[Rfam]
RNA sequence: GUCGGCUACGGGGACAUGCGACCCGUCGGGGUGUGGGGCAAAUUGGUGGGCUCGCUGUGCGCUAUCGCCGGCGUGCUCACCAUCGCCCUACCCGUGCCCGUCAUAGUCUCCAAC
Numbered sequence: 001g002u003c004g005g006c007u008a009c010g011g012g013g014a015c016a017u018g019c020g021a022c023c024c025g026u027c028g029g030g031g032u033g034u035g036g037g038g039c040a041a042a043u044u045g046g047u048g049g050g051c052u053c054g055c056u057g058u059g060c061g062c063u064a065u066c067g068c069c070g071g072c073g074u075g076c077u078c079a080c081c082a083u084c085g086c087c088c089u090a091c092c093c094g095u096g097c098c099c100g101u102c103a104u105a106g107u108c109u110c111c112a113a114c
Base pairs, nucleotide, nucleotide: 001114002113004111005110008107009106011104013102014101015100018097019096020095037077038076039075040074049063050062051061
The record is a 114-nucleotide RNA sequence from Trichonephila clavata, which matches "Potassium channel RNA editing signal" in Rfam. The family's consensus secondary structure is taken from published work. Rfam links the family to the GO term adenosine to inosine editing. Lineage of the source: Eukaryota > Arthropoda > Arachnida > Entelegynae > Trichonephila. This family represents a group of sequences related to the human potassium channel Kv1.1 hairpin element which directs the efficient modification of an adenosine to inosine by an adenosine deaminase acting on RNA (ADAR). The ADAR modification causes an isoleucine/valine recoding event which lies in the ion-conducting pore of the potassium channel. It is thought that this editing event targets the process of fast inactivation and allows a more rapid recovery from inactivation at negative potentials.